[Rfam]
RNA sequence: AGAGGAAGGAAGCAUGGUAGUGUGCACGGAGAUUCACCACAAGGUCUGCAUGUCUGCCUGCAGUGACGCCUUCGGGCUUUGAUCUCGCGGGCCUGGAUUUGACCCACAUUU
Numbered sequence: 001a002g003a004g005g006a007a008g009g010a011a012g013c014a015u016g017g018u019a020g021u022g023u024g025c026a027c028g029g030a031g032a033u034u035c036a037c038c039a040c041a042a043g044g045u046c047u048g049c050a051u052g053u054c055u056g057c058c059u060g061c062a063g064u065g066a067c068g069c070c071u072u073c074g075g076g077c078u079u080u081g082a083u084c085u086c087g088c089g090g091g092c093c094u095g096g097a098u099u100u101g102a103c104c105c106a107c108a109u110u111u
Stems, first nucleotide, its partner, number of pairs: 012025004043093004052083003056077003
Description:
Rfam assigns this 111-nucleotide sequence from Oryza sativa to the family "Small nucleolar RNA snoR100". Its family is annotated with RNA processing and nucleolus in the Gene Ontology. The family's consensus secondary structure was predicted with WAR. The family's RNA type in Rfam is H/ACA-box small nucleolar RNA.